RNA sequence: AGAUAUCAAACCUGAGCCUCCCUCCUCCUCCCAACUCAGGUUUGAUCGAAGACCGGUCUCCCUCCUCCCAACCGGUCAUUCAUUGUAACGCCCGAUGCUCCUCCCAGCGUCGGGCGUUUACU
Numbered sequence: 001a002g003a004u005a006u007c008a009a010a011c012c013u014g015a016g017c018c019u020c021c022c023u024c025c026u027c028c029u030c031c032c033a034a035c036u037c038a039g040g041u042u043u044g045a046u047c048g049a050a051g052a053c054c055g056g057u058c059u060c061c062c063u064c065c066u067c068c069c070a071a072c073c074g075g076u077c078a079u080u081c082a083u084u085g086u087a088a089c090g091c092c093c094g095a096u097g098c099u100c101c102u103c104c105c106a107g108c109g110u111c112g113g114g115c116g117u118u119u120a121c122u
Stems, first nucleotide, its partner, number of pairs: 007044003011040006048080002051077007088117011
Alphaproteobacterial ar14: a 122-nucleotide sequence from Pseudochrobactrum saccharolyticum. Gene Ontology term of the family: biological process involved in symbiotic interaction. The source organism's lineage runs through Bacteria, Pseudomonadati, Alphaproteobacteria, Hyphomicrobiales and Pseudochrobactrum. By type it is a small RNA. The match comes from Rfam's covariance-model search (75 bits). About the family: Smr14C2 was renamed NfeR1 (Nodule Formation Efficiency RNA) highly expressed in salt stress and during the symbiotic interaction on legume roots. Pairs were carried over by alignment from the consensus structure.